This 96-nucleotide RNA sequence from Pseudoflavonifractor sp. AF19-9AC belongs to the Rfam family "THF (Tetrahydrofolate) riboswitch aptamer". Taxonomically the source falls in Pseudoflavonifractor (Bacteria, Bacillota, Clostridia, Eubacteriales). Rfam links the family to the GO term tetrahydrofolate metabolic process. About the family: Tetrahydrofolate (THF) riboswitch was first reported for Ames et al. as an RNA motif in 5' untranslated (5'-UTR)regions of folate transport and biosynthesis genes in Firmicutes genomes.

RNA sequence: GACAGAGUAGGUACAGUGCGUUAAGUGCCAUCGGAUGGGAGGUUGCCGGUGGACGAAGGGACGAGAAGCCCGCGUUGCUGUGUCGCGUCCGCUGCC
Numbered sequence: 001g002a003c004a005g006a007g008u009a010g011g012u013a014c015a016g017u018g019c020g021u022u023a024a025g026u027g028c029c030a031u032c033g034g035a036u037g038g039g040a041g042g043u044u045g046c047c048g049g050u051g052g053a054c055g056a057a058g059g060g061a062c063g064a065g066a067a068g069c070c071c072g073c074g075u076u077g078c079u080g081u082g083u084c085g086c087g088u089c090c091g092c093u094g095c096c
Stems, first nucleotide, its partner, number of pairs: 001096001003094003010084009019074003025054002028052007038090003042086001058071003